The family of this 600-nucleotide part of an RNA from Salinarchaeum laminariae is "Archaeal small subunit ribosomal RNA". Its family is annotated with structural constituent of ribosome and ribosome in the Gene Ontology. Pairs were carried over by alignment from the consensus structure, which is taken from published work. Lineage of the source: Archaea > Halobacteria > Halobacteriales > Natronoarchaeaceae > Salinarchaeum. Clan: SSU clan.
[Rfam]
RNA sequence: UGGCGGGGGAGCACUACAACCGGAGGAGCCUGCGGUUUAAUUGGACUCAACGCCGGACAUCUCACCGGCACCGACAGCAGUAAUGACAGUCAGGCUGAUGCCUUUACUCGACGCUGCUGAGAGGAGGUGCAUGGCCGCCGUCAGCUCGUACCGUGAGGCGUCCUGUUAAGUCAGGCAACGAGCGAGAUCCGUAUUCUUAAUUGCCAGCAACGCCGUGAGGCGGUUGGGUACAUUAGGAAGACUGCCGCCGCCAAGGCGGAGGAAGGAGCGGGCAACGGUAGGUCAGUAUGCCCCGAAUGUGCCGGGCGACACGCGGGCUACAAUGGCCGAGACAGUGGGAUGCAACCCCGAGAGGGGGCGCUAAUCUCCUAAACUCGGCCGUAGUUCGGAUUGCGGGCUGAAACCCGCCCGCAUGAAGCUGGAUUCGGUAGUAAUCGCCGUUCAGAAGACGGCGGUGAAUACGUCCCUGCUCCUUGCACACACCGCCCGUCAAAUCACCCGAGUGGGAUCCGGAUGAGGCCCGGUUCCCGGGUCGAAUCUGGGUUCCGCAAGGGGGAUUAAGUCGUAACAAGGUAGCCGUAGGGGAAUCUGCGGCUGGAU
Numbered sequence: 001u002g003g004c005g006g007g008g009g010a011g012c013a014c015u016a017c018a019a020c021c022g023g024a025g026g027a028g029c030c031u032g033c034g035g036u037u038u039a040a041u042u043g044g045a046c047u048c049a050a051c052g053c054c055g056g057a058c059a060u061c062u063c064a065c066c067g068g069c070a071c072c073g074a075c076a077g078c079a080g081u082a083a084u085g086a087c088a089g090u091c092a093g094g095c096u097g098a099u100g101c102c103u104u105u106a107c108u109c110g111a112c113g114c115u116g117c118u119g120a121g122a123g124g125a126g127g128u129g130c131a132u133g134g135c136c137g138c139c140g141u142c143a144g145c146u147c148g149u150a151c152c153g154u155g156a157g158g159c160g161u162c163c164u165g166u167u168a169a170g171u172c173a174g175g176c177a178a179c180g181a182g183c184g185a186g187a188u189c190c191g192u193a194u195u196c197u198u199a200a201u202u203g204c205c206a207g208c209a210a211c212g213c214c215g216u217g218a219g220g221c222g223g224u225u226g227g228g229u230a231c232a233u234u235a236g237g238a239a240g241a242c243u244g245c246c247g248c249c250g251c252c253a254a255g256g257c258g259g260a261g262g263a264a265g266g267a268g269c270g271g272g273c274a275a276c277g278g279u280a281g282g283u284c285a286g287u288a289u290g291c292c293c294c295g296a297a298u299g300u301g302c303c304g305g306g307c308g309a310c311a312c313g314c315g316g317g318c319u320a321c322a323a324u325g326g327c328c329g330a331g332a333c334a335g336u337g338g339g340a341u342g343c344a345a346c347c348c349c350g351a352g353a354g355g356g357g358g359c360g361c362u363a364a365u366c367u368c369c370u371a372a373a374c375u376c377g378g379c380c381g382u383a384g385u386u387c388g389g390a391u392u393g394c395g396g397g398c399u400g401a402a403a404c405c406c407g408c409c410c411g412c413a414u415g416a417a418g419c420u421g422g423a424u425u426c427g428g429u430a431g432u433a434a435u436c437g438c439c440g441u442u443c444a445g446a447a448g449a450c451g452g453c454g455g456u457g458a459a460u461a462c463g464u465c466c467c468u469g470c471u472c473c474u475u476g477c478a479c480a481c482a483c484c485g486c487c488c489g490u491c492a493a494a495u496c497a498c499c500c501g502a503g504u505g506g507g508a509u510c511c512g513g514a515u516g517a518g519g520c521c522c523g524g525u526u527c528c529c530g531g532g533u534c535g536a537a538u539c540u541g542g543g544u545u546c547c548g549c550a551a552g553g554g555g556g557a558u559u560a561a562g563u564c565g566u567a568a569c570a571a572g573g574u575a576g577c578c579g580u581a582g583g584g585g586a587a588u589c590u591g592c593g594g595c596u597g598g599a600u
Base pairs, nucleotide, nucleotide: 001480002479003477004476005475007474008473009472010471011470012469013468016464017463020428021427022426023425024424025321027319028318029317030316031315032314033313034312035310036309041056042055043054044053065305066304067303068302069301070300071299075119076118077117078116080114081113088108089107090106092104093103094102123294124293126292127291128290129289132288133287134283135282136281137279138278139277140276144183145182146181147180148179149178151158152157162175163174164173165172189271190270191269192268194239195238196237197236198235199234200233204228205227208226209225210224211222212221213220214219242262243261245259246258247257248256249255325380326379327378328377329376330375331374337368338367339366342361343360346357347356348355349354387418392413393412394411395410396409397408398407434456435455436454437453438452439451440450441449483572485569488565489564491562493559494558495557496556498554499553500552503549504548505547506546507545508544509543510542511541512540513539514538515537518534519533520532521531522530523529524528574597575596576595577594578593579592580591581590582589583588